[Rfam]
RNA: t44 RNA
Organism: Pseudomonas sp. C27(2019)
RNA sequence: CUGGUGAAGUUUAAAAUCCACACACAUAUCGACACGAAUUUCUGGGUGCCUUCGGGUUGAAGUUCGGGAUAUGUGGAGGCCCAAC
Number, nucleotide and partner (000 for none) at each position: 001c000002u000003g000004g000005u000006g000007a000008a000009g000010u000011u000012u000013a000014a000015a000016a000017u000018c000019c000020a000021c000022a000023c075024a074025c073026a072027u071028a070029u069030c068031g000032a000033c000034a000035c066036g065037a064038a063039u062040u061041u060042c059043u000044g000045g000046g000047u000048g057049c056050c055051u000052u000053c000054g000055g050056g049057u048058u000059g042060a041061a040062g039063u038064u037065c036066g035067g000068g030069a029070u028071a027072u026073g025074u024075g023076g000077a000078g000079g000080c000081c000082c000083a000084a000085c000